[Rfam]
The family of this 412-nucleotide RNA sequence from Mycolicibacterium thermoresistibile is "Bacterial RNase P class A".
Ribonuclease P (RNase P) is a ubiquitous endoribonuclease, found in archaea, bacteria and eukarya as well as chloroplasts and mitochondria. Its best characterised activity is the generation of mature 5'-ends of tRNAs by cleaving the 5'-leader elements of precursor-tRNAs.
RNA sequence: CGAGUUGGCCGGGCGGCCGCGGGUCGUCGAAAGACGGCACGAGGAAAGUCCGGACUUCACAGAGCAGGGUGGUUGCUAACAGCAACCCGAGGUGACUCGCGGGACAGUGCCACAGAGAACAGACCGCCACCGUCGCGUCUCCGGGCGUGGCGGGGGUAAGGGUGAAACGGUGCGGUAAGAGCGCACCAGCAUCCCGGGUGACCGGGAUGGCUAGGCAAACCCCACCCGAAGCAAGGCCAAGAACGCCGCACCUCGGUGCGGCGGCGCAGGCGCUCGAGGGUUGCUCGCCCGAUGCCUGCGGGUAGGCCGCUUGAGGCACCCGGUGACGGAGUGUCCAGAUGGAUGGUCGCCGCCCCGCCGCCGCGGUAGCGGUGGUGGGGUACAGAAUCCGGCUUACAGGCCGACUCGUCCG
Dot-bracket structure: ((((((((((((((((((.((.((((((....)))))).))....[[[.[[[[[((((...[[[[.((((((((((.....)))))(((((....)))).)((...(((((............(((((.((((((((((....)))))))))).)))..)).......((((((.......)))))).(((((((((....)))))))).)..)))..)))))))))))))...((((...........................((((((......((((.]]]]))))...)))))).....))))......((((((((....))).))))).........)))))))....................................]]]]]]]].).))))))))))....
Numbered sequence: 001c002g003a004g005u006u007g008g009c010c011g012g013g014c015g016g017c018c019g020c021g022g023g024u025c026g027u028c029g030a031a032a033g034a035c036g037g038c039a040c041g042a043g044g045a046a047a048g049u050c051c052g053g054a055c056u057u058c059a060c061a062g063a064g065c066a067g068g069g070u071g072g073u074u075g076c077u078a079a080c081a082g083c084a085a086c087c088c089g090a091g092g093u094g095a096c097u098c099g100c101g102g103g104a105c106a107g108u109g110c111c112a113c114a115g116a117g118a119a120c121a122g123a124c125c126g127c128c129a130c131c132g133u134c135g136c137g138u139c140u141c142c143g144g145g146c147g148u149g150g151c152g153g154g155g156g157u158a159a160g161g162g163u164g165a166a167a168c169g170g171u172g173c174g175g176u177a178a179g180a181g182c183g184c185a186c187c188a189g190c191a192u193c194c195c196g197g198g199u200g201a202c203c204g205g206g207a208u209g210g211c212u213a214g215g216c217a218a219a220c221c222c223c224a225c226c227c228g229a230a231g232c233a234a235g236g237c238c239a240a241g242a243a244c245g246c247c248g249c250a251c252c253u254c255g256g257u258g259c260g261g262c263g264g265c266g267c268a269g270g271c272g273c274u275c276g277a278g279g280g281u282u283g284c285u286c287g288c289c290c291g292a293u294g295c296c297u298g299c300g301g302g303u304a305g306g307c308c309g310c311u312u313g314a315g316g317c318a319c320c321c322g323g324u325g326a327c328g329g330a331g332u333g334u335c336c337a338g339a340u341g342g343a344u345g346g347u348c349g350c351c352g353c354c355c356c357g358c359c360g361c362c363g364c365g366g367u368a369g370c371g372g373u374g375g376u377g378g379g380g381u382a383c384a385g386a387a388u389c390c391g392g393c394u395u396a397c398a399g400g401c402c403g404a405c406u407c408g409u410c411c412g
Stems, first nucleotide, its partner, number of pairs: 001408010011397001012351007020041002023038006046395003050392005055231004062286004067227005072086005087101001088099004102222002107220002109216003124161002126157003130153010169187006189211001190209008235308004266299006278290004315335005320329003

NCBI's taxonomy places the organism under Bacteria, Actinomycetota, Actinomycetes, Mycobacteriaceae, Mycolicibacterium thermoresistibile.